RNA: TPP riboswitch aptamer (THI element)
Organism: Salipiger sp. IMCC34102
RNA sequence: AUGAAUCCGUUGGGGUGCCCUGUCCGGGGCUGAGAGGCGCGAGCCGACCCAUCGAACCUGAUCCGGCUCAUACCGGCGUAGGGAACGGAGCAUGACCAGGC
Numbered sequence: 001a002u003g004a005a006u007c008c009g010u011u012g013g014g015g016u017g018c019c020c021u022g023u024c025c026g027g028g029g030c031u032g033a034g035a036g037g038c039g040c041g042a043g044c045c046g047a048c049c050c051a052u053c054g055a056a057c058c059u060g061a062u063c064c065g066g067c068u069c070a071u072a073c074c075g076g077c078g079u080a081g082g083g084a085a086c087g088g089a090g091c092a093u094g095a096c097c098a099g100g101c
Base pairs, nucleotide, nucleotide: 006089007088008087009086010085011051012050013049014048017030018029019028020027021026037044038043057082058081059080060079063076064075065074066073